RNA: MIR6145 microRNA precursor family
Organism: Nicotiana attenuata
RNA sequence: AUGUUGAGGACUGUGACAUAGAGCACUGGCCGUUGAAUAAAUUCCGGCCAGUGCUCAUGUUACAGUUCCCACCAUU
Numbered sequence: 001a002u003g004u005u006g007a008g009g010a011c012u013g014u015g016a017c018a019u020a021g022a023g024c025a026c027u028g029g030c031c032g033u034u035g036a037a038u039a040a041a042u043u044c045c046g047g048c049c050a051g052u053g054c055u056c057a058u059g060u061u062a063c064a065g066u067u068c069c070c071a072c073c074a075u076u
Stems, first nucleotide, its partner, number of pairs: 001075003005071002008068001010066010022055010